A member of the RNA family "SAH (S-adenosyl-L-homocysteine) riboswitch aptamer" from Actinomadura soli, 80 nucleotides long.
RNA sequence: GGAGCCGAGAGGCGCUGCAACGGGCGUUCGCCCGCCACGCUCGGCUCCGACCUCCGGAUCUGCAAGGGCGCCUCCCAUAU
Numbered sequence: 001g002g003a004g005c006c007g008a009g010a011g012g013c014g015c016u017g018c019a020a021c022g023g024g025c026g027u028u029c030g031c032c033c034g035c036c037a038c039g040c041u042c043g044g045c046u047c048c049g050a051c052c053u054c055c056g057g058a059u060c061u062g063c064a065a066g067g068g069c070g071c072c073u074c075c076c077a078u079a080u
Stems, first nucleotide, its partner, number of pairs: 002047007021034005